The family of this 94-nucleotide RNA sequence from Roseisalinus antarcticus is "Rhodo-rpoB RNA". Lineage of the source: Bacteria > Pseudomonadota > Alphaproteobacteria > Rhodobacterales > Roseisalinus. The family's RNA type in Rfam is cis-regulatory element.
[Rfam]
RNA sequence: GAGUCGGGCGGCUGCCGGUGGGACGGCGGCCUGGUAUGGACCUCGUGACGACCCCUCUCGACGGAGGCCCCGCCGUAGCCCAGCGGCGCGCGGU
Dot-bracket structure: (.(((....((((((((......)))))))).......))).).......................(((((((((........))))).).)))
Numbered sequence: 001g002a003g004u005c006g007g008g009c010g011g012c013u014g015c016c017g018g019u020g021g022g023a024c025g026g027c028g029g030c031c032u033g034g035u036a037u038g039g040a041c042c043u044c045g046u047g048a049c050g051a052c053c054c055c056u057c058u059c060g061a062c063g064g065a066g067g068c069c070c071c072g073c074c075g076u077a078g079c080c081c082a083g084c085g086g087c088g089c090g091c092g093g094u
Stems, first nucleotide, its partner, number of pairs: 001043001003041003010031008067094003070090001071088005